RNA: Bacterial RNase P class A
Organism: Acidithiobacillus ferrooxidans
RNA sequence: GGAGUGGGCCAGGCGACCGCCGCGGAGCAAUCCGGGGAGGAAAGUCCGGGCUCCAUAGGGCAAGGCGCCGGUUAACGGCCGGGGGGCGUGAGCGUACGGAAAGUGCCACAGAAAAUAUACCGCCAAGCGCGUAAGCGCGGUAAGGGUGAAAAGGUGCGGUAAGAGCGCACCGCAUUUCCGGUAACGGAAAUGGCAGGGAAAACCCCGCCUGGAGCAAGACCAAAUAGGCGUGCGAUACCGUGGCCCGCGGUGCACGCGGGUAGGUUGCUGGAGCCUGUGCGUAAGUGCAGGCCUAGAGGAAUGGUCGUCCACGACAGAACCCGGCUUAUCGGCCCACUCCAAUU
Numbered sequence: 001g002g003a004g005u006g007g008g009c010c011a012g013g014c015g016a017c018c019g020c021c022g023c024g025g026a027g028c029a030a031u032c033c034g035g036g037g038a039g040g041a042a043a044g045u046c047c048g049g050g051c052u053c054c055a056u057a058g059g060g061c062a063a064g065g066c067g068c069c070g071g072u073u074a075a076c077g078g079c080c081g082g083g084g085g086g087c088g089u090g091a092g093c094g095u096a097c098g099g100a101a102a103g104u105g106c107c108a109c110a111g112a113a114a115a116u117a118u119a120c121c122g123c124c125a126a127g128c129g130c131g132u133a134a135g136c137g138c139g140g141u142a143a144g145g146g147u148g149a150a151a152a153g154g155u156g157c158g159g160u161a162a163g164a165g166c167g168c169a170c171c172g173c174a175u176u177u178c179c180g181g182u183a184a185c186g187g188a189a190a191u192g193g194c195a196g197g198g199a200a201a202a203c204c205c206c207g208c209c210u211g212g213a214g215c216a217a218g219a220c221c222a223a224a225u226a227g228g229c230g231u232g233c234g235a236u237a238c239c240g241u242g243g244c245c246c247g248c249g250g251u252g253c254a255c256g257c258g259g260g261u262a263g264g265u266u267g268c269u270g271g272a273g274c275c276u277g278u279g280c281g282u283a284a285g286u287g288c289a290g291g292c293c294u295a296g297a298g299g300a301a302u303g304g305u306c307g308u309c310c311a312c313g314a315c316a317g318a319a320c321c322c323g324g325c326u327u328a329u330c331g332g333c334c335c336a337c338u339c340c341a342a343u344u
Stems, first nucleotide, its partner, number of pairs: 001340010011329001012309007020037002023034004042327003046324005051214004058246004063210005068082005083097001084095001086093002098205002103203002106198002120145002122141003127138004153171006172194001173192008218266004228257006237251005273292008